[Rfam]
RNA: MIR2912 microRNA precursor family
RNA sequence: UCUAAAACUUGAGAUAUGGGCUGAACACUGAAUAGUGUCUGGGUUGCAGGAUAGAUUCGGACUUCUCCAUUAUUGCUAUAAUUUAGACUUGAAAACGACUUUUUUAGAUCUUGACCUCCACAUGAAAGUUAUAGGCCUAUGUCUUACUGAAUCUGUGU
Number, nucleotide and partner (000 for none) at each position: 001u000002c157003u000004a000005a154006a000007a152008c149009u146010u000011g145012a144013g143014a142015u141016a140017u139018g138019g137020g136021c134022u133023g132024a000025a130026c000027a129028c128029u127030g000031a000032a000033u000034a000035g123036u122037g121038u000039c000040u000041g119042g118043g117044u000045u000046g000047c000048a112049g111050g110051a109052u108053a000054g105055a104056u000057u000058c000059g100060g099061a000062c000063u097064u000065c000066u000067c000068c000069a000070u000071u000072a000073u087074u086075g000076c000077u000078a000079u000080a000081a000082u000083u000084u000085a000086g074087a073088c000089u000090u000091g000092a000093a000094a000095a000096c000097g063098a000099c060100u059101u000102u000103u000104u055105u054106a000107g000108a052109u051110c050111u049112u048113g000114a000115c000116c000117u043118c042119c041120a000121c037122a036123u035124g000125a000126a000127a029128g028129u027130u025131a000132u023133a022134g021135g000136c020137c019138u018139a017140u016141g015142u014143c013144u012145u011146a009147c000148u000149g008150a000151a000152u007153c000154u005155g000156u000157g002158u000